Record summary: Manganese Mn2+ riboswitch aptamer (yybP-ykoY): a 173-nucleotide RNA from Blastochloris viridis. For this family Rfam cites "Novel small RNA-encoding genes in the intergenic regions of Escherichia coli" (Argaman et al., Curr Biol, 2001). The family has 29 seed sequences and 1,126 matches in Rfam 15.1. Taxonomically the source falls in Blastochloris (Bacteria, Pseudomonadota, Hyphomicrobiales, Blastochloridaceae). Rfam's curators write: This RNA was originally discovered in E. coli during a large scale screen and was named SraF. The family was later found to exist upstream of related families of protein genes in many bacteria, including the the yybP and ykoK genes in B. subtilis. The specific functions of these proteins are unknown, but this structured RNA element may be involved in their genetic regulation as a riboswitch.
RNA sequence: CCUACGCCGCGGCCAUCGGGGAGUAGUCACCGCUGGUCAGCGGGGCCGCGUCAACAUGCUUGCGCAAUGGCGCAUGGCGCGGCCAGCCGGUUCGUCGGCCCGACAAGACCGUGGCGCCACCUGUUCCAUACGGACGGACGGGGUGAUGGCGCCCGGUCUGUGUCCGUCGGAAC
Numbered sequence: 001c002c003u004a005c006g007c008c009g010c011g012g013c014c015a016u017c018g019g020g021g022a023g024u025a026g027u028c029a030c031c032g033c034u035g036g037u038c039a040g041c042g043g044g045g046c047c048g049c050g051u052c053a054a055c056a057u058g059c060u061u062g063c064g065c066a067a068u069g070g071c072g073c074a075u076g077g078c079g080c081g082g083c084c085a086g087c088c089g090g091u092u093c094g095u096c097g098g099c100c101c102g103a104c105a106a107g108a109c110c111g112u113g114g115c116g117c118c119a120c121c122u123g124u125u126c127c128a129u130a131c132g133g134a135c136g137g138a139c140g141g142g143g144u145g146a147u148g149g150c151g152c153c154c155g156g157u158c159u160g161u162g163u164c165c166g167u168c169g170g171a172a173c
Base pairs, nucleotide, nucleotide: 031042032041033040044084045083046082047081048080049079050078051077052076053075061074062073063072064071065070090173091172092171093170
Dot-bracket structure: ..............................(((......))).((((((((((.......(((((....))))))))))))))).....((((............................................................................))))